[Rfam]
RNA sequence: AAUCUGUUGUAAACUUGGAGAAACGGGUCUAAUCACCUUACCGAGACUAUCCAAGUAAAAUACGUCUCUCAUACCUGUGACGGAGGGUGUCGCAGGAAUAAUAAUACUA
Dot-bracket structure: ..............(((((.......................[[[[[..))))).........]]]]].....(((((((.........))))))).............
Overview:
A member of the RNA family "PhotoRC-II RNA", 109 nucleotides long. The family's RNA type in Rfam is cis-regulatory element. Pairs were carried over by alignment from the consensus structure, which is taken from published work.